Overview:
This 71-nucleotide RNA from Solimonas aquatica belongs to the Rfam family "tRNA". Pairs were carried over by alignment from the consensus structure, which is taken from published work. It scores 63 bits against the family's covariance model. It is annotated as a transfer RNA. A reference for the family is Hou (1993), "The tertiary structure of tRNA and the development of the genetic code", Trends Biochem Sci. NCBI's taxonomy places the organism under Bacteria, Pseudomonadati, Pseudomonadota, Gammaproteobacteria, Solimonas.

[Rfam]
RNA sequence: UGGGAGAUCGUCUAAUGGCAGGACAACAGAUUCUGACUCUGUUUAUCUAGGUUCGAGUCCUAGUCUCCCAA
Numbered sequence: 001u002g003g004g005a006g007a008u009c010g011u012c013u014a015a016u017g018g019c020a021g022g023a024c025a026a027c028a029g030a031u032u033c034u035g036a037c038u039c040u041g042u043u044u045a046u047c048u049a050g051g052u053u054c055g056a057g058u059c060c061u062a063g064u065c066u067c068c069c070a071a
Base pairs, nucleotide, nucleotide: 001070002069003068004067005066006065007064010024011023012022013021026042027041028040029039030038047063048062049061050060051059